This 31-nucleotide sequence from Ptilorrhoa leucosticta belongs to the Rfam family "Iron response element II". From the family's description: IRE, TFRC, SLC40A1, SDHB, SLC11A2, CDC42BPA, ACO2, ALAS2_H.SAPIENS, CDC14A, EPAS1, ALAS2, qoxD, Hao1, NDUFS1, transferrin, Aconitate. By type it is a cis-regulatory element. A reference for the family is Koeller et al. (1989), "A cytosolic protein binds to structural elements within the iron regulatory region of the transferrin receptor mRNA", Proc Natl Acad Sci U S A. Rfam links the family to the GO term response to iron ion.

RNA sequence: AUAAUUUCAUAGACAGUGAUUUAUAAAUUAA
Numbered sequence: 001a002u003a004a005u006u007u008c009a010u011a012g013a014c015a016g017u018g019a020u021u022u023a024u025a026a027a028u029u030a031a
Stems, first nucleotide, its partner, number of pairs: 002030006009024005014018001